The record is a 251-nucleotide RNA sequence from Tyzzerella sp. An114, which matches "T-box leader" in Rfam.
Gene Ontology term of the family: tRNA binding.
Lineage of the source: Bacteria > Bacillati > Bacillota > Clostridia > Tyzzerella.
For this family Rfam cites "Interaction between the acceptor end of tRNA and the T box stimulates antitermination in the Bacillus subtilis tyrS gene: a new role for the discriminator base" (Grundy et al., J Bacteriol, 1994).
About the family: Uncharged tRNA acts as the effector for transcription antitermination of genes in the T-box leader family. T-boxes are found upstream of many aminoacyl-tRNA synthetase genes and some amino acid biosynthetic genes usually in Gram-positive bacteria. The anticodon of a specific tRNA base pairs to a specifier sequence within the T-box motif, and the NCCA acceptor tail of the tRNA base pairs to a conserved bulge in the T-box antiterminator hairpin.
The family has 48 seed sequences and 19,395 matches in Rfam 15.1.
[Rfam]
RNA sequence: AACAAACCGAUGAUUGAGAGUAGUAGAUUUAUCAAGCUGUCAAAGAGAGCCGAUGAUGAUGGAAAUUCGGUACAGUAGGAUACUUUGAAUGGACUUAUGAGGGCAAGGGCGAAAUUUUUUAAAGUAGUCUUUGACGGGAACUUCACCCGUUAUAAAGGAAGUGCAUUUUUUAUAAAAAGAUGUAGAGUGAGAGGAUUUUUUUAAGAAAUCAAAAAGAGUGGUACCGCAGAGUUUUAGCCUUUGUCUCUUUA
Numbered sequence: 001a002a003c004a005a006a007c008c009g010a011u012g013a014u015u016g017a018g019a020g021u022a023g024u025a026g027a028u029u030u031a032u033c034a035a036g037c038u039g040u041c042a043a044a045g046a047g048a049g050c051c052g053a054u055g056a057u058g059a060u061g062g063a064a065a066u067u068c069g070g071u072a073c074a075g076u077a078g079g080a081u082a083c084u085u086u087g088a089a090u091g092g093a094c095u096u097a098u099g100a101g102g103g104c105a106a107g108g109g110c111g112a113a114a115u116u117u118u119u120u121a122a123a124g125u126a127g128u129c130u131u132u133g134a135c136g137g138g139a140a141c142u143u144c145a146c147c148c149g150u151u152a153u154a155a156a157g158g159a160a161g162u163g164c165a166u167u168u169u170u171u172a173u174a175a176a177a178a179g180a181u182g183u184a185g186a187g188u189g190a191g192a193g194g195a196u197u198u199u200u201u202u203a204a205g206a207a208a209u210c211a212a213a214a215a216g217a218g219u220g221g222u223a224c225c226g227c228a229g230a231g232u233u234u235u236a237g238c239c240u241u242u243g244u245c246u247c248u249u250u251a
Stems, first nucleotide, its partner, number of pairs: 007102002015097004026086002030082002038074003049071005104133007135149003194210007215248004226244005